[Rfam]
RNA sequence: AGGCCCGCGAGGGUUUGUCUGAAGGAAGCCGGAGUGCAAGAGGUGCGAGGCGACGGACAGAAACCGCAUAGAAGGCUGAGGGCGGCGAGGCGAGCUGGCACAUGGCAGCAAAGCCCAACGGUACGCGGCCCACAGUAAAUGCAGCGCUUGUGCAUCGACAGUUCGCGUC
Numbered sequence: 001a002g003g004c005c006c007g008c009g010a011g012g013g014u015u016u017g018u019c020u021g022a023a024g025g026a027a028g029c030c031g032g033a034g035u036g037c038a039a040g041a042g043g044u045g046c047g048a049g050g051c052g053a054c055g056g057a058c059a060g061a062a063a064c065c066g067c068a069u070a071g072a073a074g075g076c077u078g079a080g081g082g083c084g085g086c087g088a089g090g091c092g093a094g095c096u097g098g099c100a101c102a103u104g105g106c107a108g109c110a111a112a113g114c115c116c117a118a119c120g121g122u123a124c125g126c127g128g129c130c131c132a133c134a135g136u137a138a139a140u141g142c143a144g145c146g147c148u149u150g151u152g153c154a155u156c157g158a159c160a161g162u163u164c165g166c167g168u169c
Base pairs, nucleotide, nucleotide: 001016002015003014004013005012006011028169030167031166036162037161042156043155044154045153046152047151048149049148050147051146052145064144066142067141068140069139075136076135077134080131081130082129083128085126089115090114091113094109095108096107097106

Rfam assigns this 169-nucleotide sequence from Pelomonas sp. HMWF004 to the family "Group II catalytic intron D1-D4-3". The base pairs follow the family's consensus structure. The match comes from Rfam's covariance-model search (109 bits).